[Rfam]
RNA sequence: ACCCUCGUAUUAUUGUGUUCUGGGUUGUGACCGAGCUUAUCCUCGUUCAUUUUUUUUCACAACCUCUCCGUAAAAAAUAAAACACGCCCCGCUCGGGAUAACCCUUCAGGACGAAAAUAGCGGAUAAUGGCACGCCCUGAUAUGCAGCAAAUCUGCCGUAGAUGUGCCAUUUAAGGGCAU
Numbered sequence: 001a002c003c004c005u006c007g008u009a010u011u012a013u014u015g016u017g018u019u020c021u022g023g024g025u026u027g028u029g030a031c032c033g034a035g036c037u038u039a040u041c042c043u044c045g046u047u048c049a050u051u052u053u054u055u056u057u058c059a060c061a062a063c064c065u066c067u068c069c070g071u072a073a074a075a076a077a078u079a080a081a082a083c084a085c086g087c088c089c090c091g092c093u094c095g096g097g098a099u100a101a102c103c104c105u106u107c108a109g110g111a112c113g114a115a116a117a118u119a120g121c122g123g124a125u126a127a128u129g130g131c132a133c134g135c136c137c138u139g140a141u142a143u144g145c146a147g148c149a150a151a152u153c154u155g156c157c158g159u160a161g162a163u164g165u166g167c168c169a170u171u172u173a174a175g176g177g178c179a180u
Stems, first nucleotide, its partner, number of pairs: 022104006033092001035090001042086001043084001045083003051077006058070001162180004167175001